[Rfam]
Rfam assigns this 84-nucleotide RNA sequence from Actinomadura sp. WAC 06369 to the family "SAH (S-adenosyl-L-homocysteine) riboswitch aptamer".
Rfam links the family to the GO terms S-adenosylhomocysteine metabolic process and regulation of gene expression.
The match comes from Rfam's covariance-model search (37 bits).
Pairs were carried over by alignment from the consensus structure, which is taken from published work.

RNA sequence: CAGGCCGAGAGGCGCUGCAACGGGUGGACGCCCGCCACGCUCGGCCCCACCGGAUUCCGGUUGAAACAAGGGCGCCUCCCACGA
Numbered sequence: 001c002a003g004g005c006c007g008a009g010a011g012g013c014g015c016u017g018c019a020a021c022g023g024g025u026g027g028a029c030g031c032c033c034g035c036c037a038c039g040c041u042c043g044g045c046c047c048c049a050c051c052g053g054a055u056u057c058c059g060g061u062u063g064a065a066a067c068a069a070g071g072g073c074g075c076c077u078c079c080c081a082c083g084a
Stems, first nucleotide, its partner, number of pairs: 003046006021034005